This 127-nucleotide sequence from Micrococcales bacterium KH10 belongs to the Rfam family "SAM (S-adenosyl methionine) riboswitch aptamer". Rfam links the family to the GO terms S-adenosylmethionine metabolic process and regulation of gene expression. NCBI's taxonomy places the organism under Bacteria, Bacillati, Actinomycetota, Actinomycetes, Micrococcales. Rfam describes the family as follows. SAM-IV is a mRNA element that regulates gene expression via direct sensing of S-adenosylmethionine (SAM or AdoMet). SAM-IV riboswitches share conserved nucleotide positions with the previously described SAM-I riboswitches sequence analysis and molecular recognition experiments suggest that SAM-I and SAM-IV riboswitches share similar ligand binding sites, but have different scaffolds. On this family, see Weinberg et al., RNA 2008: "The aptamer core of SAM-IV riboswitches mimics the ligand-binding site of SAM-I riboswitches".
[Rfam]
RNA sequence: GGUCAUGAGUAUCAGCGUGCACGCCAGUGCAACAGCCCCGGCUCGCUGAUCGGCAACCCUCUUUCAAGCGUGGGGUGCUCCGGGUGACGACCUGGCCGCAGUCAGACCGCUACGGCAAGCGCUAGGU
Dot-bracket structure: ((((....(.((((((.................((......)).)))))))(((..(((.(........)..))).))).........))))..((((.(((......))).))))...........